Rfam assigns this 103-nucleotide sequence from Virgibacillus phasianinus to the family "Purine riboswitch aptamer".

[Rfam]
RNA sequence: AUAGUUAUAAAUUUCAUCACUCGUAUAUACUCGGUAAUAUGGUCUGAGUGUCUCUACCUGGUUCCCAUUAAUGAACCGGACUACGGGUUAAAGUUUCGCGGUU
Numbered sequence: 001a002u003a004g005u006u007a008u009a010a011a012u013u014u015c016a017u018c019a020c021u022c023g024u025a026u027a028u029a030c031u032c033g034g035u036a037a038u039a040u041g042g043u044c045u046g047a048g049u050g051u052c053u054c055u056a057c058c059u060g061g062u063u064c065c066c067a068u069u070a071a072u073g074a075a076c077c078g079g080a081c082u083a084c085g086g087g088u089u090a091a092a093g094u095u096u097c098g099c100g101g102u103u
Base pairs, nucleotide, nucleotide: 019088020087021086022085023084024083025082029049030048031047032046033045034044058079059078060077061076062075063074064073